[Rfam]
RNA sequence: CAGUAGUCAGCUGUCGGGACAGAACCAUUCCUGUAACAGUGUUACACUGAAUGUUCUGUCUUCUUCUCCAGUUGCCUUCGUCACUGUUCUGGUGGCGUCUGGCACUGGUGAGGGCAGAGCUGUGCUUCCUUGAGAGUAUGCUAAACAUUCACUUUGGCUGCUUAGUUCUAGUCUGGGAGCAGACACA
Numbered sequence: 001c002a003g004u005a006g007u008c009a010g011c012u013g014u015c016g017g018g019a020c021a022g023a024a025c026c027a028u029u030c031c032u033g034u035a036a037c038a039g040u041g042u043u044a045c046a047c048u049g050a051a052u053g054u055u056c057u058g059u060c061u062u063c064u065u066c067u068c069c070a071g072u073u074g075c076c077u078u079c080g081u082c083a084c085u086g087u088u089c090u091g092g093u094g095g096c097g098u099c100u101g102g103c104a105c106u107g108g109u110g111a112g113g114g115c116a117g118a119g120c121u122g123u124g125c126u127u128c129c130u131u132g133a134g135a136g137u138a139u140g141c142u143a144a145a146c147a148u149u150c151a152c153u154u155u156g157g158c159u160g161c162u163u164a165g166u167u168c169u170a171g172u173c174u175g176g177g178a179g180c181a182g183a184c185a186c187a
Stems, first nucleotide, its partner, number of pairs: 001049004006045002010040005015033005053120009068108003073104004079097007123181007140166001142164003146160002
Dot-bracket structure: ((((.((..((((((((((.........)))))..)))))...))))))...(((((((((......(((..((((..(((((((.....)))))))...)))).)))...)))))))))..(((((((..........(.(((.((...........)).))).)........)))))))......
Shown here is a 187-nucleotide RNA from Cervus hanglu, a member of the family "Small nucleolar RNA SNORA74". Pairs were carried over by alignment from the consensus structure, which was predicted with PFOLD. U19 belongs to the H/ACA class of snoRNAs. snoRNAs bind a number of proteins (including dyskerin, Gar1p and Nop10p in the case of the H/ACA class) to form snoRNP complexes. This class are thought to guide the sites of modification of uridines to pseudouridines by forming direct base pairing interactions with substrate RNAs. Targets may include ribosomal and spliceosomal RNAs but the exact functions of many snoRNAs, including U19, are not confirmed. Gene Ontology terms of the family: RNA processing and nucleolus. It scores 85 bits against the family's covariance model. Clan: SNORA74 clan.